[Rfam]
RNA sequence: AGAGAAAAAGGCAAACUUUCCGAAAGGUUAGGACGCAAAGCUAAGGGUCUAACGAUUAUAAAAAUUAUUAUAAUCCAUGAUCGCCCGGCUGCCACUU
Numbered sequence: 001a002g003a004g005a006a007a008a009a010g011g012c013a014a015a016c017u018u019u020c021c022g023a024a025a026g027g028u029u030a031g032g033a034c035g036c037a038a039a040g041c042u043a044a045g046g047g048u049c050u051a052a053c054g055a056u057u058a059u060a061a062a063a064a065u066u067a068u069u070a071u072a073a074u075c076c077a078u079g080a081u082c083g084c085c086c087g088g089c090u091g092c093c094a095c096u097u
Stems, first nucleotide, its partner, number of pairs: 001097001004093001011036002016031002020027002034083001039090004045085002047081003
The family of this 97-nucleotide sequence from Virgibacillus sp. MSP4-1 is "c-di-GMP-I-GGC riboswitch aptamer".
The organism belongs to Virgibacillus, within Bacteria.
Rfam links the family to the GO term cyclic-di-GMP binding.
A search with the family's covariance model found it, with a score of 61 bits.
The family is grouped with related families in Rfam's "c-di-GMP_I riboswitch clan".